[Rfam]
RNA sequence: UCACUUCACAUUAAUCGCGAAGCCCCUAUAUGGGUCCGUGCCGGCUUUAGUCGGCUAUGAUGAUAAAUUGCCUCGUGCAAUAGACGCAGCGGACCCGGGGGCGGUACCCGGCGGCUCCACCACUACCCGUCCGGCUCAGGCCGGGCACCCUGAUGUCGCAGGGCCUGCUUGGCAGGGGUAAUGACGGGGCCGAACUAGGAUCGACGUGUGUUGAAAAGCGAUGUUUUCAUCCGGGCUGAGUAACCCGUUCAAGGCUCAAAACUCAUAAGUGCCAACGACAACGACGCACUUGCUCUCGCUGCGUAAUUCUAGGGCCUAACGGCCUGAAGUUACAAAGUUAGAACGCGGUUGGACCCACCGGUCAACAGAAGCGGAUUCC
Number, nucleotide and partner (000 for none) at each position: 001u000002c000003a000004c000005u000006u000007c000008a000009c000010a000011u000012u000013a000014a000015u000016c000017g000018c000019g000020a000021a000022g000023c000024c000025c000026c000027u000028a000029u000030a000031u000032g000033g000034g000035u000036c000037c000038g000039u000040g055041c054042c053043g052044g051045c000046u000047u000048u000049a000050g000051u044052c043053g042054g041055c040056u000057a000058u000059g231060a230061u229062g228063a227064u000065a000066a000067a000068u000069u000070g224071c223072c000073u221074c220075g219076u218077g000078c000079a000080a000081u000082a000083g000084a000085c210086g209087c208088a000089g207090c206091g205092g000093a000094c000095c111096c110097g109098g108099g107100g000101g000102c000103g000104g000105u000106a000107c099108c098109c097110g096111g095112c192113g191114g190115c189116u188117c187118c186119a000120c000121c000122a000123c000124u000125a000126c000127c000128c000129g000130u000131c000132c000133g000134g000135c000136u000137c000138a000139g000140g000141c000142c000143g000144g000145g000146c000147a000148c000149c000150c000151u000152g000153a000154u000155g000156u000157c000158g000159c000160a000161g000162g000163g000164c000165c000166u000167g000168c000169u000170u000171g000172g000173c000174a000175g000176g000177g000178g000179u000180a000181a000182u000183g000184a000185c000186g118187g117188g116189g115190c114191c113192g112193a000194a000195c000196u000197a000198g000199g000200a000201u000202c000203g000204a000205c091206g090207u089208g087209u086210g085211u000212u000213g000214a000215a000216a000217a000218g076219c075220g074221a073222u000223g071224u070225u000226u000227u063228c062229a061230u060231c059232c247233g246234g245235g244236c000237u258238g257239a256240g000241u000242a000243a000244c235245c234246c233247g232248u000249u000250c000251a000252a000253g000254g000255c000256u239257c238258a237259a000260a000261a000262c000263u000264c000265a000266u000267a000268a000269g000270u000271g000272c000273c000274a000275a000276c000277g000278a000279c000280a000281a000282c000283g000284a000285c000286g000287c000288a000289c000290u000291u000292g000293c000294u000295c000296u000297c000298g000299c000300u000301g000302c000303g000304u000305a000306a000307u000308u000309c000310u000311a000312g000313g000314g000315c000316c000317u000318a000319a000320c000321g000322g000323c000324c000325u000326g000327a000328a000329g000330u000331u000332a000333c000334a000335a000336a000337g000338u000339u000340a000341g000342a000343a000344c000345g000346c360347g359348g358349u357350u000351g377352g376353a000354c374355c373356c000357a349358c348359c347360g346361g000362u000363c000364a000365a000366c000367a000368g000369a000370a000371g000372c000373g355374g354375a000376u352377u351378c000379c000
RNA: Alphaproteobacteria transfer-messenger RNA